[Rfam]
RNA sequence: GUUCAGACAGGAGUAAUCCCAGCUGAAACAGGGUUUUCACCCUUCCUUUCUUCUGGUUUCCUUCCUCUGCUUCAGCGGCC
Numbered sequence: 001g002u003u004c005a006g007a008c009a010g011g012a013g014u015a016a017u018c019c020c021a022g023c024u025g026a027a028a029c030a031g032g033g034u035u036u037u038c039a040c041c042c043u044u045c046c047u048u049u050c051u052u053c054u055g056g057u058u059u060c061c062u063u064c065c066u067c068u069g070c071u072u073c074a075g076c077g078g079c080c
Stems, first nucleotide, its partner, number of pairs: 001073001004069001006067002009062004019056004025050004030043005
The family of this 80-nucleotide RNA sequence from Pospiviroid latenscolumneae is "Pospiviroid RY motif stem loop". Rfam's curators put it in the seed alignment. Its family is annotated with protein binding in the Gene Ontology. Rfam describes the family as follows. This family consists of several Pospiviroid sequences which are related to the potato spindle tuber viroid (PSTVd) RY motif stem-loop.